[Rfam]
Source information
Rfam assigns this 153-nucleotide RNA sequence from Sarcophilus harrisii to the family "Small Cajal body specific RNA 21". Taxonomically the source falls in Sarcophilus (Eukaryota, Dipnotetrapodomorpha, Mammalia, Dasyuridae).

RNA sequence: AGGACCUUAUUUCCUGGGGGGUGAGCUCAGUCUACCUCCACCCCCCCUCAGUGGGUCCCAGAAUAGAGAGCCAGAAUGGGUCUCACUCUCACCCCAUGAGCAGAGAGGAGUGUGAGACAGACAUCUGAUCUGGCUUGUACUGGCAACACAUCC
Numbered sequence: 001a002g003g004a005c006c007u008u009a010u011u012u013c014c015u016g017g018g019g020g021g022u023g024a025g026c027u028c029a030g031u032c033u034a035c036c037u038c039c040a041c042c043c044c045c046c047c048u049c050a051g052u053g054g055g056u057c058c059c060a061g062a063a064u065a066g067a068g069a070g071c072c073a074g075a076a077u078g079g080g081u082c083u084c085a086c087u088c089u090c091a092c093c094c095c096a097u098g099a100g101c102a103g104a105g106a107g108g109a110g111u112g113u114g115a116g117a118c119a120g121a122c123a124u125c126u127g128a129u130c131u132g133g134c135u136u137g138u139a140c141u142g143g144c145a146a147c148a149c150a151u152c153c
Base pairs, nucleotide, nucleotide: 002058003057004056005055006054007053016046017045018044019043020042021041022040023039024037025036068147070144071143073141074140093133094132101127102126103125104124
The family's RNA type in Rfam is small Cajal body RNA. Rfam's curators write: scaRNAs are a specific class of small nuclear RNAs which localise to the Cajal bodies and guide the modification of RNA polymerase II transcribed spliceosomal RNAs U1, U2, U4, U5 and U12. ACA68 (SCARNA21) is a member of the H/ACA class of snoRNAs that guide the sites of modification of uridines to pseudouridines. This snoRNA was identified by computational screening and its expression in mouse experimentally verified by Northern blot and primer extension analysis.